[Rfam]
RNA: Bacterial RNase P class B
RNA sequence: AUUUUUGGAUAAUCGCAUGGUAGGAAUCUACCAUGAGGAAAGUCCAUGCUAGCACCGGCUGUGAUGCCGGUAGUGUUUGUGCUAGGCGAACCAAUAAGCCUAGGGACGUAGCAAUGCGUUACGGCGAUUGAAAGAGCUAAGUCGCAAGAUAUGUUCGAGUAGGUCUGAAAAGUGCCACAGUGACGGAGUUUUUAUGGAAACAUAAAAAGUGGAACGCGGUAAACCCCUCAAGCUAGCAACCCAAAUUUUGGUCGGGGCAUGGGAAAGUCGGAAACAGAACGAACUUUCCUGACUGCAUAAGCAGUAGACAGAUGAUUAUCGAAGGUGGUAGUGCCUAGUACCACUGGAACAAAACAUGGCUUAUAGAA
Numbered sequence: 001a002u003u004u005u006u007g008g009a010u011a012a013u014c015g016c017a018u019g020g021u022a023g024g025a026a027u028c029u030a031c032c033a034u035g036a037g038g039a040a041a042g043u044c045c046a047u048g049c050u051a052g053c054a055c056c057g058g059c060u061g062u063g064a065u066g067c068c069g070g071u072a073g074u075g076u077u078u079g080u081g082c083u084a085g086g087c088g089a090a091c092c093a094a095u096a097a098g099c100c101u102a103g104g105g106a107c108g109u110a111g112c113a114a115u116g117c118g119u120u121a122c123g124g125c126g127a128u129u130g131a132a133a134g135a136g137c138u139a140a141g142u143c144g145c146a147a148g149a150u151a152u153g154u155u156c157g158a159g160u161a162g163g164u165c166u167g168a169a170a171a172g173u174g175c176c177a178c179a180g181u182g183a184c185g186g187a188g189u190u191u192u193u194a195u196g197g198a199a200a201c202a203u204a205a206a207a208a209g210u211g212g213a214a215c216g217c218g219g220u221a222a223a224c225c226c227c228u229c230a231a232g233c234u235a236g237c238a239a240c241c242c243a244a245a246u247u248u249u250g251g252u253c254g255g256g257g258c259a260u261g262g263g264a265a266a267g268u269c270g271g272a273a274a275c276a277g278a279a280c281g282a283a284c285u286u287u288c289c290u291g292a293c294u295g296c297a298u299a300a301g302c303a304g305u306a307g308a309c310a311g312a313u314g315a316u317u318a319u320c321g322a323a324g325g326u327g328g329u330a331g332u333g334c335c336u337a338g339u340a341c342c343a344c345u346g347g348a349a350c351a352a353a354a355c356a357u358g359g360c361u362u363a364u365a366g367a368a
Base pairs, nucleotide, nucleotide: 004368005367006366007364008320009319010318011317012316013315014314016035017034018033019032020031021030040362041361042360044359045358046357047356048355049236050235051234052233053232054071055070056069057068058067059066077231078230079229081227082103083102084101085100086099087098104122105120106119107118108117109116110115123226124225126165127164128163129162134156135155136154137153141150142149143148172224173223174220175219176218189208190207191206192205193204194203195202196201240256241255242254260291261290262289263288264287265286266285292305293304294303295302296301324345325344326343327342328341329340330339